[Rfam]
RNA: DUF3800-IX RNA
RNA sequence: UCUCUCUUGACGAAUCGUCAUCCCUUUGUGGAUGGCUUGCCUGCAAAGGCUAGUCAGGAGAGUUUCU
Numbered sequence: 001u002c003u004c005u006c007u008u009g010a011c012g013a014a015u016c017g018u019c020a021u022c023c024c025u026u027u028g029u030g031g032a033u034g035g036c037u038u039g040c041c042u043g044c045a046a047a048g049g050c051u052a053g054u055c056a057g058g059a060g061a062g063u064u065u066c067u
Stems, first nucleotide, its partner, number of pairs: 002062010017036006039050004